The family of this 94-nucleotide RNA sequence from Sphingomonas sp. Leaf339 is "Glycine riboswitch aptamer". The match comes from Rfam's covariance-model search (67 bits).
[Rfam]
RNA sequence: AUGCCCCGCGCGGGAGAGACCCCGGACUGGAUCCGGGGCGCCGAAGGAGCAACCACCCCGGAAUCUCUCAGGCACCAGGGACCGCGCGAGGAUA
Numbered sequence: 001a002u003g004c005c006c007c008g009c010g011c012g013g014g015a016g017a018g019a020c021c022c023c024g025g026a027c028u029g030g031a032u033c034c035g036g037g038g039c040g041c042c043g044a045a046g047g048a049g050c051a052a053c054c055a056c057c058c059c060g061g062a063a064u065c066u067c068u069c070a071g072g073c074a075c076c077a078g079g080g081a082c083c084g085c086g087c088g089a090g091g092a093u094a
Stems, first nucleotide, its partner, number of pairs: 007088007020038006040073003043069002047067003053061002